The record is a 67-nucleotide sequence from Flavobacterium fluvii, which matches "DUF805 RNA" in Rfam. Pairs were carried over by alignment from the consensus structure, which is taken from published work. It is annotated as a cis-regulatory element. The family is grouped with related families in Rfam's "DUF805 clan". Taxonomically the source falls in Flavobacterium (Bacteria, Pseudomonadati, Flavobacteriia, Flavobacteriales).
RNA sequence: CAACCGUUGAGUUCAGAAACAACUAAAAACGAGGCGUACUCUGAAAAUCCUAACGAGUAAGAAAUAU
Numbered sequence: 001c002a003a004c005c006g007u008u009g010a011g012u013u014c015a016g017a018a019a020c021a022a023c024u025a026a027a028a029a030c031g032a033g034g035c036g037u038a039c040u041c042u043g044a045a046a047a048u049c050c051u052a053a054c055g056a057g058u059a060a061g062a063a064a065u066a067u
Stems, first nucleotide, its partner, number of pairs: 006023004033050002040061001
Dot-bracket structure: .....((((..........)))).........((.....[........))..........]......